[Rfam]
RNA sequence: UGCCGGGUCCUGCGCGGCGCAAUCCCGCCAACCCCGCCAGGUCCGGAAGGAAGCAACGGCAACGGGCCAGUGCGUGCGCAGCAGGUCCCCCGGUACAU
Numbered sequence: 001u002g003c004c005g006g007g008u009c010c011u012g013c014g015c016g017g018c019g020c021a022a023u024c025c026c027g028c029c030a031a032c033c034c035c036g037c038c039a040g041g042u043c044c045g046g047a048a049g050g051a052a053g054c055a056a057c058g059g060c061a062a063c064g065g066g067c068c069a070g071u072g073c074g075u076g077c078g079c080a081g082c083a084g085g086u087c088c089c090c091c092g093g094u095a096c097a098u
Base pairs, nucleotide, nucleotide: 004092005091006090007089009085010084011083012082013081015076017075018074019073020072021071024066025065026064027063034059035058036057042051043050044049